[Rfam]
RNA sequence: GAUGAGAGACAGGGGCGUUCGUCGACAGACGGGCUGAGAAGCACCCUUCGAACCUGAACCGGAUAAUGCCGGCGGAGGGAGUCGCUCGGGGCAUCGC
Numbered sequence: 001g002a003u004g005a006g007a008g009a010c011a012g013g014g015g016c017g018u019u020c021g022u023c024g025a026c027a028g029a030c031g032g033g034c035u036g037a038g039a040a041g042c043a044c045c046c047u048u049c050g051a052a053c054c055u056g057a058a059c060c061g062g063a064u065a066a067u068g069c070c071g072g073c074g075g076a077g078g079g080a081g082u083c084g085c086u087c088g089g090g091g092c093a094u095c096g097c
Stems, first nucleotide, its partner, number of pairs: 006085001008083003011047004016041001017034005053078003059072004
This 97-nucleotide RNA from Rhizobium etli belongs to the Rfam family "TPP riboswitch aptamer (THI element)". Pairs were carried over by alignment from the consensus structure, which is taken from published work. It scores 64 bits against the family's covariance model. The organism belongs to Rhizobium etli, within Bacteria.